Rfam assigns this 141-nucleotide sequence from Stegastes partitus to the family "Small nucleolar RNA SNORD10". The family's RNA type in Rfam is C/D-box small nucleolar RNA. Pairs were carried over by alignment from the consensus structure, which was predicted with WAR. The literature on the family includes a 2001 paper in EMBO J by Huttenhofer et al., "RNomics: an experimental approach that identifies 201 candidates for novel, small, non-messenger RNAs in mouse".
RNA sequence: GUAUAAUGAUGAAACCCAUGCGUGUCAACUGACUCUGUAAACCUCUGGUGUGUUGUUGCUCUGCUUGGCGUUCUGCUGGGUUGAGUCUUCAGGACAACAGGGACCCAGAGACAUGAUCAUACAUACAUUGCCUCUGAAUAC
Numbered sequence: 001g002u003a004u005a006a007u008g009a010u011g012a013a014a015c016c017c018a019u020g021c022g023u024g025u026c027a028a029c030u031g032a033c034u035c036u037g038u039a040a041a042c043c044u045c046u047g048g049u050g051u052g053u054u055g056u057u058g059c060u061c062u063g064c065u066u067g068g069c070g071u072u073c074u075g076c077u078g079g080g081u082u083g084a085g086u087c088u089u090c091a092g093g094a095c096a097a098c099a100g101g102g103a104c105c106c107a108g109a110g111a112c113a114u115g116a117u118c119a120u121a122c123a124u125a126c127a128u129u130g131c132c133u134c135u136g137a138a139u140a141c
Base pairs, nucleotide, nucleotide: 001141002140003139004138043102044101045100046099047098049096050095051094
Dot-bracket structure: ((((......................................(((((.(((..........................................))).)))))...................................))))